The family of this 99-nucleotide RNA sequence from Stieleria maiorica is "c-di-GMP-I riboswitch aptamer".
[Rfam]
RNA sequence: CCCAGAGAAAGGCAAACCGCACCGUAAGGGCGGGGCGCAAAGCUGCGGGUCCGUGGGCAAAGCGACUUGCUUUGUUUCAAGGAUAGCCGAGCUGCCAAG
Numbered sequence: 001c002c003c004a005g006a007g008a009a010a011g012g013c014a015a016a017c018c019g020c021a022c023c024g025u026a027a028g029g030g031c032g033g034g035g036c037g038c039a040a041a042g043c044u045g046c047g048g049g050u051c052c053g054u055g056g057g058c059a060a061a062g063c064g065a066c067u068u069g070c071u072u073u074g075u076u077u078c079a080a081g082g083a084u085a086g087c088c089g090a091g092c093u094g095c096c097a098a099g
Base pairs, nucleotide, nucleotide: 012038013037017033018032019031020030022029023028041093042092043091044090046089047088048087049084050083051082056078057077059075
Taxonomically the source falls in Stieleria (Bacteria, Planctomycetota, Pirellulales, Pirellulaceae). The base pairs follow the family's consensus structure, which is taken from published work.